[Rfam]
RNA sequence: CUCUUAUCAAGAGAGGUUGAGGGUCUGGCCCUAUGAAACCUCAGCAACCUGCAAGUAUUUAUUGCAAGGUGCUAAUUCCUGCAAGUUUUGUAAAUAAACUUGGAAGAUAAGAA
Numbered sequence: 001c002u003c004u005u006a007u008c009a010a011g012a013g014a015g016g017u018u019g020a021g022g023g024u025c026u027g028g029c030c031c032u033a034u035g036a037a038a039c040c041u042c043a044g045c046a047a048c049c050u051g052c053a054a055g056u057a058u059u060u061a062u063u064g065c066a067a068g069g070u071g072c073u074a075a076u077u078c079c080u081g082c083a084a085g086u087u088u089u090g091u092a093a094a095u096a097a098a099c100u101u102g103g104a105a106g107a108u109a110a111g112a113a
Stems, first nucleotide, its partner, number of pairs: 002112007013042005021031003025081001027079002043073004048069002051065004077105001082102006

A member of the RNA family "SAM riboswitch aptamer (S box leader)" from Robertmurraya siralis, 113 nucleotides long. NCBI's taxonomy places the organism under Bacteria, Bacillota, Bacilli, Caryophanales, Robertmurraya.